[Rfam]
RNA sequence: AGCCGGGUCCCGCGCAACGGACGGCCGCCAACCCCGUCAGGCCCGGGAGGGAGCAGCGGUAACGGCUUUAGCCGUGUGCCGCGGGUGAGCCUGGCUGUC
Numbered sequence: 001a002g003c004c005g006g007g008u009c010c011c012g013c014g015c016a017a018c019g020g021a022c023g024g025c026c027g028c029c030a031a032c033c034c035c036g037u038c039a040g041g042c043c044c045g046g047g048a049g050g051g052a053g054c055a056g057c058g059g060u061a062a063c064g065g066c067u068u069u070a071g072c073c074g075u076g077u078g079c080c081g082c083g084g085g086u087g088a089g090c091c092u093g094g095c096u097g098u099c
Base pairs, nucleotide, nucleotide: 004093005092006091007090008089009085010084011083012082013081014080015076017075018074019073020072023067024066025065026064027063034059035058036057037056042051043050044049
A member of the RNA family "Bacterial small signal recognition particle RNA" from Syntrophotalea carbinolica, 99 nucleotides long. The signal recognition particle (SRP) is a universally conserved ribonucleoprotein involved in the co-translational targeting of proteins to membranes. Pairs were carried over by alignment from the consensus structure, which is taken from published work. Lineage of the source: Bacteria > Pseudomonadati > Desulfuromonadia > Desulfuromonadales > Syntrophotalea carbinolica.